[Rfam]
Shown here is a 180-nucleotide sequence from Sporosarcina sp. JAI121, a member of the family "Lysine riboswitch aptamer".
Taxonomically the source falls in Sporosarcina (Bacteria, Bacillota, Caryophanales, Caryophanaceae).
Riboswitches are metabolite binding domains within certain messenger RNAs that serve as precision sensors for their corresponding targets. Allosteric rearrangement of mRNA structure is mediated by ligand binding, and this results in modulation of gene expression. This family includes riboswitches that sense lysine in a number of genes involved in lysine metabolism, including lysC.
RNA sequence: AGUGAAGAUAGAGGUGCGAAUACCAAUAGUACAUCACGGGAAGGCGACAGCCUGAUGAACGGGAUUGAAAGGGGUAUUCGCCGAAGCGGAUAAAUCGUCUGUCACGAUUAUCCUGCUGGGUUUCCAUUGAAUAAGUGGGAGCCUGUCAGGUAUAAAGAUACCUGGAGAGCUAUCUGAACG
Numbered sequence: 001a002g003u004g005a006a007g008a009u010a011g012a013g014g015u016g017c018g019a020a021u022a023c024c025a026a027u028a029g030u031a032c033a034u035c036a037c038g039g040g041a042a043g044g045c046g047a048c049a050g051c052c053u054g055a056u057g058a059a060c061g062g063g064a065u066u067g068a069a070a071g072g073g074g075u076a077u078u079c080g081c082c083g084a085a086g087c088g089g090a091u092a093a094a095u096c097g098u099c100u101g102u103c104a105c106g107a108u109u110a111u112c113c114u115g116c117u118g119g120g121u122u123u124c125c126a127u128u129g130a131a132u133a134a135g136u137g138g139g140a141g142c143c144u145g146u147c148a149g150g151u152a153u154a155a156a157g158a159u160a161c162c163u164g165g166a167g168a169g170c171u172a173u174c175u176g177a178a179c180g
Stems, first nucleotide, its partner, number of pairs: 006175006016081009033065003037061002085117004089112005095107003118144011146165007